[Rfam]
RNA sequence: GCAUACAAAGGCAAACCAAUCGUGAGGUUGGGACGCAAAGCCAUGGGUCUUAUUUUUUGGAAAGAAUGCCAGGUUGCCACCU
Number, nucleotide and partner (000 for none) at each position: 001g082002c000003a000004u000005a000006c000007a000008a000009a000010g000011g036012c035013a000014a000015a000016c031017c030018a029019a028020u027021c026022g000023u000024g000025a000026g021027g020028u019029u018030g017031g016032g000033a000034c068035g012036c011037a000038a000039a075040g074041c073042c072043a000044u071045g070046g069047g000048u065049c064050u000051u000052a000053u000054u000055u000056u000057u000058u000059g000060g000061a000062a000063a000064g049065a048066a000067u000068g034069c046070c045071a044072g042073g041074u040075u039076g000077c000078c000079a000080c000081c000082u001

Rfam assigns this 82-nucleotide sequence from Candidatus Kuenenia stuttgartensis to the family "c-di-GMP-I-GGC riboswitch aptamer". The source organism's lineage runs through Bacteria, Planctomycetota, Candidatus Brocadiia, Candidatus Brocadiaceae and Candidatus Kuenenia.